A member of the RNA family "c-di-GMP-I riboswitch aptamer" from Terribacillus sp. AE2B 122, 87 nucleotides long.

RNA sequence: AAAAUUAUUAGGCAAACUUAUCGAAAGAUAGGGACGCAAAGCUACGAGUCUAAUAUCCGUAUGGAUGAUGAUAGUCGGGUUGCCAAG
Number, nucleotide and partner (000 for none) at each position: 001a000002a000003a000004a000005u000006u000007a000008u000009u000010a000011g000012g037013c036014a000015a000016a000017c032018u031019u030020a029021u028022c027023g000024a000025a000026a000027g022028a021029u020030a019031g018032g017033g000034a000035c000036g013037c012038a000039a000040a081041g080042c079043u078044a000045c077046g076047a075048g072049u071050c070051u000052a000053a000054u000055a066056u065057c064058c063059g000060u000061a000062u000063g058064g057065a056066u055067g000068a000069u000070g050071a049072u048073a000074g000075u047076c046077g045078g043079g042080u041081u040082g000083c000084c000085a000086a000087g000